About this RNA:
sRNA-Xcc1: an 83-nucleotide RNA from Pseudactinobacillus ducreyi. Rfam 15.1 lists 421 matches to the family in 299 species. It is annotated as a small RNA.
[Rfam]
RNA sequence: GACCGACAGUGUGAGGAAUACAAUACCGCAAGGGAAUAACUCCGCUGUUCAUACUACAGUUUUGAGCUGUCGGUCGCCCUAAU
Dot-bracket structure: (((((((((...(((.(........((....))...)..))).(((((.......)))))......)))))))))........
Numbered sequence: 001g002a003c004c005g006a007c008a009g010u011g012u013g014a015g016g017a018a019u020a021c022a023a024u025a026c027c028g029c030a031a032g033g034g035a036a037u038a039a040c041u042c043c044g045c046u047g048u049u050c051a052u053a054c055u056a057c058a059g060u061u062u063u064g065a066g067c068u069g070u071c072g073g074u075c076g077c078c079c080u081a082a083u
Stems, first nucleotide, its partner, number of pairs: 001075009013042003017037001026033002044060005